[Rfam]
Nucleotides: 202
Stems, first nucleotide, its partner, number of pairs: 005197005011191011025177002031171005045157002048154005057147003061143002064140003068136003075129005
Number, partner (000 for none) and nucleotide at each position: 001000u002000a003000g004000a005197u006196u007195u008194g009193u010000c011191c012190u013189a014188a015187g016186u017185c018184a019183a020182a021181c022000c023000c024000a025177u026176c027000c028000a029000a030000c031171u032170u033169u034168g035167a036000c037000c038000a039000a040000a041000c042000u043000u044000a045157u046156a047000a048154a049153a050152a051151a052150a053000a054000a055000u056000a057147u058146a059145a060000u061143a062142a063000c064140a065139u066138c067000c068136a069135u070134a071000c072000u073000a074000c075129c076128a077127a078126a079125u080000a081000u082000a083000u084000g085000c086000a087000c088000u089000a090000u091000c092000g093000a094000a095000a096000u097000a098000u099000a100000u101000u102000u103000c104000a105000u106000a107000a108000u109000a110000a111000a112000u113000u114000c115000g116000a117000u118000g119000c120000g121000a122000c123000a124000a125079a126078u127077u128076u129075g130000a131000u132000a133000u134070u135069g136068u137000a138066g139065a140064u141000a142062u143061u144000u145059u146058u147057g148000u149000a150052u151051u152050u153049u154048u155000c156046u157045a158000u159000a160000a161000a162000c163000u164000u165000g166000a167035u168034u169033a170032a171031a172000g173000u174000u175000g176026g177025a178000c179000a180000a181021g182020u183019u184018u185017g186016a187015c188014u189013u190012g191011g192000a193009a194008c195007g196006a197005a198000c199000u200000u201000a202000a

The family of this 202-nucleotide RNA sequence from Setaria viridis is "MIR1435 microRNA precursor family". The organism belongs to Setaria, within Eukaryota.